[Rfam]
RNA sequence: UUUCGCGCUGGAGAUGGCAUUCUCCCUUAACCGCCCUCGGGGCUGAUGAUGCCUGCUACGCC
Number, nucleotide and partner (000 for none) at each position: 001u000002u000003u000004c000005g000006c000007g000008c000009u000010g025011g024012a023013g022014a000015u000016g053017g052018c051019a050020u049021u048022c013023u012024c011025c010026c000027u000028u000029a000030a000031c000032c000033g043034c042035c041036c000037u000038c000039g000040g000041g035042g034043c033044u000045g000046a000047u000048g021049a020050u019051g018052c017053c016054u000055g000056c000057u000058a000059c000060g000061c000062c000